A member of the RNA family "Ruegeria cis8 sRNA" from Phaeobacter italicus, 128 nucleotides long. It is annotated as a small RNA. The source organism's lineage runs through Bacteria, Pseudomonadati, Alphaproteobacteria, Roseobacteraceae and Phaeobacter.
Nucleotides: 128
Stems, first nucleotide, its partner, number of pairs: 003018006026128002029125003033122004038114003043109001045107002048104001050102005056097002061093003072084003
Number, partner (000 for none) and nucleotide at each position: 001000a002000c003018c004017g005016c006015c007014a008013g009000c010000a011000c012000c013008u014007u015006g016005g017004c018003g019000a020000u021000a022000u023000a024000g025000g026128g027127g028000a029125u030124c031123a032000g033122c034121g035120g036119c037000a038114g039113g040112u041000u042000c043109a044000g045107g046106a047000u048104c049000a050102g051101c052100a053099g054098g055000a056097u057096c058000a059000g060000g061093u062092u063091g064000c065000c066000a067000a068000c069000a070000u071000a072084c073083a074082u075000g076000g077000a078000g079000a080000u081000g082074a083073u084072g085000a086000c087000g088000g089000c090000c091063c092062a093061g094000a095000a096057g097056a098054u099053c100052u101051g102050u103000g104048g105000c106046u107045c108000a109043u110000c111000c112040a113039c114038c115000a116000u117000c118000a119036g120035c121034c122033g123031u124030g125029g126000a127027c128026c